[Rfam]
RNA sequence: CCAUUCCCACCCCCUUAUCACUUUUCCAGCCCAGCUUCGUCAUUGCCACUGUUGGACGGAGAACUGAUAAGGGUGUGUGGGUGG
Number, nucleotide and partner (000 for none) at each position: 001c000002c000003a000004u000005u000006c000007c000008c000009a000010c000011c000012c073013c072014c071015u070016u069017a068018u067019c066020a065021c000022u063023u062024u061025u060026c059027c058028a000029g000030c055031c054032c000033a000034g000035c000036u000037u000038c000039g000040u000041c000042a000043u000044u000045g000046c000047c000048a000049c000050u000051g000052u000053u000054g031055g030056a000057c000058g027059g026060a025061g024062a023063a022064c000065u020066g019067a018068u017069a016070a015071g014072g013073g012074u000075g000076u000077g000078u000079g000080g000081g000082u000083g000084g000